[Rfam]
RNA: CRISPR RNA direct repeat element
Organism: Picrophilus oshimae
RNA sequence: CUUCCAUACUAUCUAGUAAUUCUUAAAC
Numbered sequence: 001c002u003u004c005c006a007u008a009c010u011a012u013c014u015a016g017u018a019a020u021u022c023u024u025a026a027a028c
Stems, first nucleotide, its partner, number of pairs: 007018004